[Rfam]
RNA: ffh sRNA
Organism: Shimia litoralis
RNA sequence: UCGGGCAGGGAUCGCCCCCCGUCAGCGAGUUUCGCCCACGGGGGCAGUUCUG
Numbered sequence: 001u002c003g004g005g006c007a008g009g010g011a012u013c014g015c016c017c018c019c020c021g022u023c024a025g026c027g028a029g030u031u032u033c034g035c036c037c038a039c040g041g042g043g044g045c046a047g048u049u050c051u052g
Base pairs, nucleotide, nucleotide: 016044017043018042019041020040021039022038025035026034027033028032